The record is a 434-nucleotide RNA, which matches "Small Cajal body-specific RNA 2" in Rfam.
RNA sequence: AUUUACCGGAGGGAGAGCGGCCAGGGGUGAGGUUGGAGUGUGUCGUGAUGAGGUGUUGCGUGGAAGGCACAUGCGGGCCAAAUGUGUGAAUGGACGCGUGAAUGUGAGUGCGCAUAGUGCAUACAAGGCGAGGGCGUGUGCCCGCCCGGGUCCCUCCCCGCCGCCUUGGUCUUAUUUGAUGGGGUUGUGACUCCAGCCCCGCGGGACCGACCCGAAAUGAAAAGCUUAUCUCCUGCGAAGCCUUGUCUUGGGGCGCUGUGCGGCGAGGCCCAAUGGGCGGUGGCGAUGCCGAGGUCCAGGAGCCGAGCCUAUGGGGGCUGGCGCUCAGAAGUGAUGAAUUGAUCAAAUAGACGAGGCCGGGAAAUAAAGUUUUAAAAAACAAACAAACAAAAUAAAAAAUAUUUAUGGAAGACUUAGAGUCUACUCAUUCCUGA
Number, nucleotide and partner (000 for none) at each position: 001a000002u000003u000004u000005a000006c000007c000008g000009g000010a000011g000012g000013g000014a000015g000016a000017g000018c000019g000020g000021c000022c000023a000024g000025g000026g000027g000028u000029g000030a000031g000032g000033u000034u000035g000036g000037a000038g000039u000040g000041u000042g000043u000044c000045g000046u000047g000048a000049u000050g000051a000052g152053g151054u000055g000056u150057u073058g072059c000060g070061u069062g068063g000064a000065a000066g000067g000068c062069a061070c060071a000072u058073g057074c000075g000076g000077g000078c000079c000080a000081a000082a000083u000084g000085u000086g000087u000088g000089a000090a000091u000092g000093g000094a000095c100096g000097c000098g000099u000100g095101a000102a000103u000104g141105u140106g139107a000108g000109u136110g135111c134112g000113c132114a000115u130116a000117g000118u000119g000120c000121a000122u000123a000124c000125a000126a000127g000128g000129c000130g115131a000132g113133g000134g111135c110136g109137u000138g000139u106140g105141c104142c000143c000144g000145c000146c000147c000148g000149g000150g056151u053152c052153c000154c000155u000156c000157c000158c000159c000160g000161c000162c000163g000164c000165c000166u000167u000168g000169g000170u000171c000172u000173u000174a000175u223176u222177u221178g000179a000180u215181g000182g213183g212184g000185u210186u209187g208188u000189g207190a000191c000192u206193c205194c204195a000196g202197c201198c000199c000200c000201g197202c196203g000204g194205g193206a192207c189208c187209g186210a185211c000212c183213c182214g000215a180216a000217a000218u000219g000220a000221a177222a176223a175224g000225c000226u000227u000228a000229u000230c000231u000232c000233c000234u000235g000236c000237g000238a000239a000240g000241c000242c000243u000244u000245g000246u301247c300248u299249u298250g000251g000252g297253g296254c000255g295256c294257u293258g000259u000260g000261c291262g000263g289264c288265g287266a000267g000268g284269c283270c282271c280272a000273a000274u000275g000276g000277g000278c000279g000280g271281u000282g270283g269284c268285g000286a000287u265288g264289c263290c000291g261292a000293g257294g256295u255296c253297c252298a249299g248300g247301a246302g322303c321304c320305g319306a000307g000308c315309c314310u000311a000312u000313g000314g309315g308316g000317g000318c000319u305320g304321g303322c302323g000324c000325u000326c433327a432328g431329a000330a000331g000332u000333g000334a000335u000336g426337a425338a000339u423340u000341g421342a000343u000344c000345a000346a000347a000348u000349a000350g000351a000352c000353g000354a000355g000356g000357c000358c000359g000360g000361g000362a000363a403364a402365u401366a400367a000368a000369g000370u379371u378372u000373u000374a000375a000376a000377a000378a371379a370380c000381a000382a000383a000384c000385a000386a000387a000388c000389a000390a000391a000392a000393u000394a000395a000396a000397a000398a000399a000400u366401a365402u364403u363404u000405a000406u000407g000408g000409a000410a000411g000412a000413c000414u000415u000416a000417g000418a000419g000420u000421c341422u000423a339424c000425u337426c336427a000428u000429u000430c000431c328432u327433g326434a000
Gene Ontology terms of the family: RNA processing and nucleolus.